[Rfam]
The family of this 295-nucleotide sequence from Brassica carinata is "TeloSII non coding RNA 33".
Located downstream of the TeloSII elements. These elements have been shown to coordinate the expression of protein-coding gene related to ribosome biogenesis throughout the cell cycle in Arabidopsis.
The base pairs follow the family's consensus structure, which was predicted with RNAfold.

RNA sequence: CUUAUCCUCAUCAGCCAACUUCUGAAUACAAAAUCUACACAGCUACACUCUCAAACACUUAUUUACAUCCAAACAUAUACCAACAAAUCUCACACAUAAGUGUCGGAUUCACAUCACACCCAAAAAAUUCAACGGUUAACAAAAAGGAUUCUUUCAAAAUUUCAAGGUAAAAAUCUGCAAAUGUGUAUAUAUUAUUUAAACUAGAGCCUCCUUCUGAAGUUUCUGGUAGUUGAUUGAUAAGUACCUAACGAAGACCCACACCAAUGCCAAGAACAACACAUACACCAAGUCCAAU
Numbered sequence: 001c002u003u004a005u006c007c008u009c010a011u012c013a014g015c016c017a018a019c020u021u022c023u024g025a026a027u028a029c030a031a032a033a034u035c036u037a038c039a040c041a042g043c044u045a046c047a048c049u050c051u052c053a054a055a056c057a058c059u060u061a062u063u064u065a066c067a068u069c070c071a072a073a074c075a076u077a078u079a080c081c082a083a084c085a086a087a088u089c090u091c092a093c094a095c096a097u098a099a100g101u102g103u104c105g106g107a108u109u110c111a112c113a114u115c116a117c118a119c120c121c122a123a124a125a126a127a128u129u130c131a132a133c134g135g136u137u138a139a140c141a142a143a144a145a146g147g148a149u150u151c152u153u154u155c156a157a158a159a160u161u162u163c164a165a166g167g168u169a170a171a172a173a174u175c176u177g178c179a180a181a182u183g184u185g186u187a188u189a190u191a192u193u194a195u196u197u198a199a200a201c202u203a204g205a206g207c208c209u210c211c212u213u214c215u216g217a218a219g220u221u222u223c224u225g226g227u228a229g230u231u232g233a234u235u236g237a238u239a240a241g242u243a244c245c246u247a248a249c250g251a252a253g254a255c256c257c258a259c260a261c262c263a264a265u266g267c268c269a270a271g272a273a274c275a276a277c278a279c280a281u282a283c284a285c286c287a288a289g290u291c292c293a294a295u
Stems, first nucleotide, its partner, number of pairs: 011217004023065006037051001039049001098137002101134003105130005144213005151206001162205002165202002176187003219286001221284001222282001224280002226277002230272002233265004241259002249253001